RNA sequence: UAAAUAUUUCGGCAAAACUACUGAAAAGUAGUGACGCAAAGCUAUAGGGACUUCCUUCCUGCCUUGGUGGGAGAUGUCAGCCAGUUGCACAA
Numbered sequence: 001u002a003a004a005u006a007u008u009u010c011g012g013c014a015a016a017a018c019u020a021c022u023g024a025a026a027a028g029u030a031g032u033g034a035c036g037c038a039a040a041g042c043u044a045u046a047g048g049g050a051c052u053u054c055c056u057u058c059c060u061g062c063c064u065u066g067g068u069g070g071g072a073g074a075u076g077u078c079a080g081c082c083a084g085u086u087g088c089a090c091a092a
Base pairs, nucleotide, nucleotide: 012037013036017032018031019030020029021028022027040086041085042084043083047082048081049078050077051076056072057071058070059069
c-di-GMP-I riboswitch aptamer: a 92-nucleotide sequence from Paenibacillus anaericanus. NCBI's taxonomy places the organism under Bacteria, Bacillota, Caryophanales, Paenibacillaceae, Paenibacillus.